The record is a 100-nucleotide sequence from Carnobacterium iners, which matches "Purine riboswitch aptamer" in Rfam. NCBI's taxonomy places the organism under Bacteria, Bacillota, Bacilli, Carnobacteriaceae, Carnobacterium. From the family's description: Riboswitches are metabolite binding domains within certain messenger RNAs that serve as precision sensors for their corresponding targets. The family's consensus secondary structure is taken from published work. Its family is annotated with purine nucleobase biosynthetic process in the Gene Ontology. A search with the family's covariance model found it, with a score of 66 bits.
RNA sequence: GGAGACGAAGAAAUACACUCUAAUAUAAUUAAGCGAUAUGGGCUUUAAGUUUCUACCGGACACCGUAAAUGAUCCGACUAUUAGGGGAAAGCUGCUUUUU
Numbered sequence: 001g002g003a004g005a006c007g008a009a010g011a012a013a014u015a016c017a018c019u020c021u022a023a024u025a026u027a028a029u030u031a032a033g034c035g036a037u038a039u040g041g042g043c044u045u046u047a048a049g050u051u052u053c054u055a056c057c058g059g060a061c062a063c064c065g066u067a068a069a070u071g072a073u074c075c076g077a078c079u080a081u082u083a084g085g086g087g088a089a090a091g092c093u094g095c096u097u098u099u100u
Stems, first nucleotide, its partner, number of pairs: 018086008029048002031045004057076004061071002